[Rfam]
RNA sequence: CAAACAUCGCAGUGAUGUGGUGCAGAACGAUACAGGAGUCAGCCGAGGCCAUAGUAGUGGUAUCUGCCACGAAGGGC
Dot-bracket structure: (...(((((((....)))))))..).............((....)).(((......(((((....)))))....)))
A member of the RNA family "Group II catalytic intron D1-D4-1" from Secundilactobacillus collinoides, 77 nucleotides long.
Group II introns are found in rRNA, tRNA and mRNA of organelles in fungi, plants and protists, and also in mRNA in bacteria.
Its family is annotated with Group II intron splicing in the Gene Ontology.